The record is a 250-nucleotide part of an RNA from Holophaga foetida, which matches "Bacterial large subunit ribosomal RNA" in Rfam. Rfam's curators put it in the seed alignment. NCBI's taxonomy places the organism under Bacteria, Pseudomonadati, Holophagae, Holophagaceae, Holophaga.
[Rfam]
RNA sequence: GGAUAUUUGAGAGGACCUGUCCUUAGUACGAGAGGACCGGGAUGGACUGACCUCUGGUGUUCCAGUUGUGUUUCCAAAUGCAACGCUGGGUAGCUAUGUCGGGAAGUGAGAAGCGCUGAAAGCAUCUAAGCGCGAAACACCCCUCAAGAUGAGAUAUCCCCACGAGACCCGUCGUAGAACACGACGUUGAUAGGUCGCAUGUGUAAGCGCAGUAAUGCGUUGAGCUGAGCGAUACUAAUUGGUCCCACUG
Numbered sequence: 001g002g003a004u005a006u007u008u009g010a011g012a013g014g015a016c017c018u019g020u021c022c023u024u025a026g027u028a029c030g031a032g033a034g035g036a037c038c039g040g041g042a043u044g045g046a047c048u049g050a051c052c053u054c055u056g057g058u059g060u061u062c063c064a065g066u067u068g069u070g071u072u073u074c075c076a077a078a079u080g081c082a083a084c085g086c087u088g089g090g091u092a093g094c095u096a097u098g099u100c101g102g103g104a105a106g107u108g109a110g111a112a113g114c115g116c117u118g119a120a121a122g123c124a125u126c127u128a129a130g131c132g133c134g135a136a137a138c139a140c141c142c143c144u145c146a147a148g149a150u151g152a153g154a155u156a157u158c159c160c161c162a163c164g165a166g167a168c169c170c171g172u173c174g175u176a177g178a179a180c181a182c183g184a185c186g187u188u189g190a191u192a193g194g195u196c197g198c199a200u201g202u203g204u205a206a207g208c209g210c211a212g213u214a215a216u217g218c219g220u221u222g223a224g225c226u227g228a229g230c231g232a233u234a235c236u237a238a239u240u241g242g243u244c245c246c247a248c249u250g
Stems, first nucleotide, its partner, number of pairs: 001159008011145004017045007047102005055096003062089005067082006106140003113133005166244004170186005191237003194233005201225001207220005